RNA sequence: UUGUACCAAGCGGCACGACCAGCUCCUGCUGAAUCCCCCAGGUCCGGAAGGAAGCAAGGGUAGGCGGUUGUAGCGGUGCGAUGCCGCUUAUUU
Numbered sequence: 001u002u003g004u005a006c007c008a009a010g011c012g013g014c015a016c017g018a019c020c021a022g023c024u025c026c027u028g029c030u031g032a033a034u035c036c037c038c039c040a041g042g043u044c045c046g047g048a049a050g051g052a053a054g055c056a057a058g059g060g061u062a063g064g065c066g067g068u069u070g071u072a073g074c075g076g077u078g079c080g081a082u083g084c085c086g087c088u089u090a091u092u093u
Stems, first nucleotide, its partner, number of pairs: 008089008016080002018077002

Record summary: A member of the RNA family "Bacteroidales small SRP" from Lunatimonas lonarensis, 93 nucleotides long. Rfam classes the family as a non-coding RNA gene. The source organism's lineage runs through Bacteria, Pseudomonadati, Bacteroidota, Cyclobacteriaceae and Lunatimonas. Pairs were carried over by alignment from the consensus structure, which is taken from published work. Gene Ontology terms of the family: SRP-dependent cotranslational protein targeting to membrane, signal sequence recognition and signal recognition particle, plasma membrane targeting.